[Rfam]
RNA sequence: UUGCCGACCACGCCGAACCACUGAUGAGGAGUCAGUGGGCGGGGGACCCAGGUUGUUUGGGGCGAAUUUCACGGUGCAUCCGUGUGAAGCGCAGGCUCUUUCCGCGCUAGCCCGUCAGCUAACCCCGCAGGCCGACGAAAGAGGAAUC
Numbered sequence: 001u002u003g004c005c006g007a008c009c010a011c012g013c014c015g016a017a018c019c020a021c022u023g024a025u026g027a028g029g030a031g032u033c034a035g036u037g038g039g040c041g042g043g044g045g046a047c048c049c050a051g052g053u054u055g056u057u058u059g060g061g062g063c064g065a066a067u068u069u070c071a072c073g074g075u076g077c078a079u080c081c082g083u084g085u086g087a088a089g090c091g092c093a094g095g096c097u098c099u100u101u102c103c104g105c106g107c108u109a110g111c112c113c114g115u116c117a118g119c120u121a122a123c124c125c126c127g128c129a130g131g132c133c134g135a136c137g138a139a140a141g142a143g144g145a146a147u148c
Base pairs, nucleotide, nucleotide: 012132013131014130018038019037020036021035022034023033024032025031039128040127041126042125043124044123049059050058060113061112062111068086070084071083089107090106091105092104
This 148-nucleotide RNA sequence from Baekduia soli belongs to the Rfam family "c-di-AMP riboswitch aptamer (ydaO/yuaA leader)". The organism belongs to Baekduia, within Bacteria.